[Rfam]
RNA: PyrR binding site
Organism: Tepidibacillus sp. HK-1
RNA sequence: AUGUCCUUUAAAUGUAGUCCAGAGAGGCUAACAAGGUGAACGGGUAUUGAAUAGGUUAAAUUCUAUUCAAGCAAUAUCGAUUCGCUUUUGCCUCUAGGUAAAAGCUUUUUUUAUU
Numbered sequence: 001a002u003g004u005c006c007u008u009u010a011a012a013u014g015u016a017g018u019c020c021a022g023a024g025a026g027g028c029u030a031a032c033a034a035g036g037u038g039a040a041c042g043g044g045u046a047u048u049g050a051a052u053a054g055g056u057u058a059a060a061u062u063c064u065a066u067u068c069a070a071g072c073a074a075u076a077u078c079g080a081u082u083c084g085c086u087u088u089u090g091c092c093u094c095u096a097g098g099u100a101a102a103a104g105c106u107u108u109u110u111u112u113a114u115u
Stems, first nucleotide, its partner, number of pairs: 005036004015030005047070009079110002084105009